[Rfam]
RNA: Fluoride riboswitch aptamer (crcB RNA motif)
Organism: Nitrospira sp. SCGC AG-212-E16
RNA sequence: CCGCCUACAGGGGAUGGAGUCCCCCGUAUAACCGCCUCGGCCAGGCUGAUGACUCCUACGCUACA
Numbered sequence: 001c002c003g004c005c006u007a008c009a010g011g012g013g014a015u016g017g018a019g020u021c022c023c024c025c026g027u028a029u030a031a032c033c034g035c036c037u038c039g040g041c042c043a044g045g046c047u048g049a050u051g052a053c054u055c056c057u058a059c060g061c062u063a064c065a
Stems, first nucleotide, its partner, number of pairs: 010025004016056006034046004